Rfam assigns this 141-nucleotide RNA sequence from Labeo rohita to the family "U4 spliceosomal RNA". The match comes from Rfam's covariance-model search (108 bits). Pairs were carried over by alignment from the consensus structure, which is taken from published work. The family's RNA type in Rfam is spliceosomal small nuclear RNA.

[Rfam]
RNA sequence: AUUCUUUCGCAGAGGCAAUAUCGUAGCUUAUGAGGUUCAUCCGAGGCGCGAUCAUUGCUGAUUGAAACCUUUACCCAAUACCCCGCCGGGAUGACUUGAAAUACAGUCAGCCUUGGCAAUUUUUGCCAGCCUCUCUGGAGG
Numbered sequence: 001a002u003u004c005u006u007u008c009g010c011a012g013a014g015g016c017a018a019u020a021u022c023g024u025a026g027c028u029u030a031u032g033a034g035g036u037u038c039a040u041c042c043g044a045g046g047c048g049c050g051a052u053c054a055u056u057g058c059u060g061a062u063u064g065a066a067a068c069c070u071u072u073a074c075c076c077a078a079u080a081c082c083c084c085g086c087c088g089g090g091a092u093g094a095c096u097u098g099a100a101a102u103a104c105a106g107u108c109a110g111c112c113u114u115g116g117c118a119a120u121u122u123u124u125g126c127c128a129g130c131c132u133c134u135c136u137g138g139a140g141g
Stems, first nucleotide, its partner, number of pairs: 020052005026047003034042002085117003088113003092109005130141004